RNA sequence: CUCUGUAUUCUUCCACAGCUUUCUUGAACUGCAACCUUCUUCAGAUUAGUUUCUAUUCUCACAUAUAUAUAUAUAUAUAUAUAUAUAUAUUACCAUAGCAUAGUUAUGUUAAUUUAAAUUGCAUCUGUUCGACUGAUUUGCGGUUCAAUAAAGCUGUGGGAAGAUACAGACA
Numbered sequence: 001c002u003c004u005g006u007a008u009u010c011u012u013c014c015a016c017a018g019c020u021u022u023c024u025u026g027a028a029c030u031g032c033a034a035c036c037u038u039c040u041u042c043a044g045a046u047u048a049g050u051u052u053c054u055a056u057u058c059u060c061a062c063a064u065a066u067a068u069a070u071a072u073a074u075a076u077a078u079a080u081a082u083a084u085a086u087a088u089a090u091u092a093c094c095a096u097a098g099c100a101u102a103g104u105u106a107u108g109u110u111a112a113u114u115u116a117a118a119u120u121g122c123a124u125c126u127g128u129u130c131g132a133c134u135g136a137u138u139u140g141c142g143g144u145u146c147a148a149u150a151a152a153g154c155u156g157u158g159g160g161a162a163g164a165u166a167c168a169g170a171c172a
Stems, first nucleotide, its partner, number of pairs: 003169005013159003017155006024148004029143005
RNA: MIR396 microRNA precursor family
Organism: Brassica carinata